[Rfam]
RNA: Glycine riboswitch aptamer
Organism: Bacillus sp. FJAT-27231
RNA sequence: AUGACGAUUGUGGGAGAGUGCAAGCAGUGAGCCACCGAAGGAGCAAGUUCCAAAAAGACCCUUGGAAUCAAUCUCUCAGGUAGAAGAACCACAAUGGGACG
Number, nucleotide and partner (000 for none) at each position: 001a000002u000003g000004a000005c000006g000007a095008u094009u093010g092011u091012g090013g089014g000015a000016g000017a000018g000019u000020g032021c031022a000023a000024g000025c000026a000027g000028u000029g000030a000031g021032c020033c000034a081035c080036c079037g077038a076039a000040g000041g075042a074043g073044c000045a000046a000047g068048u067049u066050c065051c064052a063053a062054a000055a000056a000057g000058a000059c000060c000061c000062u053063u052064g051065g050066a049067a048068u047069c000070a000071a000072u000073c043074u042075c041076u038077c037078a000079g036080g035081u034082a000083g000084a000085a000086g000087a000088a000089c013090c012091a011092c010093a009094a008095u007096g000097g000098g000099a000100c000101g000